[Rfam]
RNA sequence: AGAGGUGAGGGCGAUCUGGUUGCAACAUCUGUCACCCCAUUGAUCACCAGGGUUGAUUCAGCUUAUCUUGCUGGCUAGGCAGGUGUCCCCUUUCUCCCUCACAGGUCCAUGUGUGUUCCUCCCAAAGCUGUGCACUUGGUCAAAGAGGACAACCACCCCUGAUAGAGAAGGAGCUAUCUUCACUCAAGGGUAUACGAAUGGCUGCACUCCCUGCUAGAACCUCCAAACAAGCUCUCAAAAUCCAUUUGUAGGAGAACAUAGGGUAGUAAAGCUUCCAAGACUCCAGACACAUCUGAAUGAGGCACUGCAUGUGGCAGUUGGCCUUUCUCU
Numbered sequence: 001a002g003a004g005g006u007g008a009g010g011g012c013g014a015u016c017u018g019g020u021u022g023c024a025a026c027a028u029c030u031g032u033c034a035c036c037c038c039a040u041u042g043a044u045c046a047c048c049a050g051g052g053u054u055g056a057u058u059c060a061g062c063u064u065a066u067c068u069u070g071c072u073g074g075c076u077a078g079g080c081a082g083g084u085g086u087c088c089c090c091u092u093u094c095u096c097c098c099u100c101a102c103a104g105g106u107c108c109a110u111g112u113g114u115g116u117u118c119c120u121c122c123c124a125a126a127g128c129u130g131u132g133c134a135c136u137u138g139g140u141c142a143a144a145g146a147g148g149a150c151a152a153c154c155a156c157c158c159c160u161g162a163u164a165g166a167g168a169a170g171g172a173g174c175u176a177u178c179u180u181c182a183c184u185c186a187a188g189g190g191u192a193u194a195c196g197a198a199u200g201g202c203u204g205c206a207c208u209c210c211c212u213g214c215u216a217g218a219a220c221c222u223c224c225a226a227a228c229a230a231g232c233u234c235u236c237a238a239a240a241u242c243c244a245u246u247u248g249u250a251g252g253a254g255a256a257c258a259u260a261g262g263g264u265a266g267u268a269a270a271g272c273u274u275c276c277a278a279g280a281c282u283c284c285a286g287a288c289a290c291a292u293c294u295g296a297a298u299g300a301g302g303c304a305c306u307g308c309a310u311g312u313g314g315c316a317g318u319u320g321g322c323c324u325u326u327c328u329c330u
Stems, first nucleotide, its partner, number of pairs: 002107002005102007013093002018090002025086009035074002037070001039068001042067003047061001116171002119167003122139004127135001140162003147158002201272003207266002209263005221254004227249005295330001297328001299325005304318005
7SK RNA: a 330-nucleotide sequence from Macaca nemestrina. The family's RNA type in Rfam is non-coding RNA gene. Rfam's curators write: 7SK was discovered as an abundant small nuclear RNA in the mid-70s but a possible function has only recently been suggested. Its Rfam clan is "7SK clan". Taxonomically the source falls in Macaca (Eukaryota, Craniata, Eutheria, Boreoeutheria). It scores 299 bits against the family's covariance model. Rfam 15.1 lists 49,373 matches to the family in 668 species.